[Rfam]
RNA sequence: CGGAAAAUGUCCGCACACGCAUCGACACAACCGGCCGGGUGCCUGGUAAACAGGUUGCCGCUUGGGAUGCGUGGAGGCCCAAC
Numbered sequence: 001c002g003g004a005a006a007a008u009g010u011c012c013g014c015a016c017a018c019g020c021a022u023c024g025a026c027a028c029a030a031c032c033g034g035c036c037g038g039g040u041g042c043c044u045g046g047u048a049a050a051c052a053g054g055u056u057g058c059c060g061c062u063u064g065g066g067a068u069g070c071g072u073g074g075a076g077g078c079c080c081a082a083c
Stems, first nucleotide, its partner, number of pairs: 016073008028064003032060004041055005

This 83-nucleotide RNA sequence from Thiocapsa marina belongs to the Rfam family "t44 RNA".
The organism belongs to Thiocapsa marina, within Bacteria.
It is annotated as a small RNA.
This family consists of a number of bacterial RNA genes of between 135 and 170 bases in length. The t44 gene has been identified in several species of enteric bacteria but homologs have also been identified in Pseudomonas and Coxiella species.
The family's consensus secondary structure was predicted with LocARNA.